This 262-nucleotide RNA sequence from Aotus nancymaae belongs to the Rfam family "bip internal ribosome entry site (IRES)". Rfam's curators write: This family represents the bip internal ribosome entry site (IRES). It scores 280 bits against the family's covariance model.
RNA sequence: CGCCGGCCGAGACACCACAGACAGACGAGUCGAUCGGGGUGUUUUGCGAGUCUGAGAGGUAAGCGCCGCGGCCUGCAUUUCCAGACCUGCCCUUCUCUUGGUUCGUGGCGCCUUGUGACCCCGGGACCCUGCCGCCUGCAGGUCGGUAACCGCGCUGCGCUCCUGUGCUGCGGCCUGUGGCUGAACUGCCUGCGACGCCCUGCCUGCUGCUGCCCAACUGGCUGGCAAGAUGAAGUUCUUCCUGGUGGCCGCGAUGCUGCUG
Numbered sequence: 001c002g003c004c005g006g007c008c009g010a011g012a013c014a015c016c017a018c019a020g021a022c023a024g025a026c027g028a029g030u031c032g033a034u035c036g037g038g039g040u041g042u043u044u045u046g047c048g049a050g051u052c053u054g055a056g057a058g059g060u061a062a063g064c065g066c067c068g069c070g071g072c073c074u075g076c077a078u079u080u081c082c083a084g085a086c087c088u089g090c091c092c093u094u095c096u097c098u099u100g101g102u103u104c105g106u107g108g109c110g111c112c113u114u115g116u117g118a119c120c121c122c123g124g125g126a127c128c129c130u131g132c133c134g135c136c137u138g139c140a141g142g143u144c145g146g147u148a149a150c151c152g153c154g155c156u157g158c159g160c161u162c163c164u165g166u167g168c169u170g171c172g173g174c175c176u177g178u179g180g181c182u183g184a185a186c187u188g189c190c191u192g193c194g195a196c197g198c199c200c201u202g203c204c205u206g207c208u209g210c211u212g213c214c215c216a217a218c219u220g221g222c223u224g225g226c227a228a229g230a231u232g233a234a235g236u237u238c239u240u241c242c243u244g245g246u247g248g249c250c251g252c253g254a255u256g257c258u259g260c261u262g
Stems, first nucleotide, its partner, number of pairs: 004251006016167005034124007063111009171183005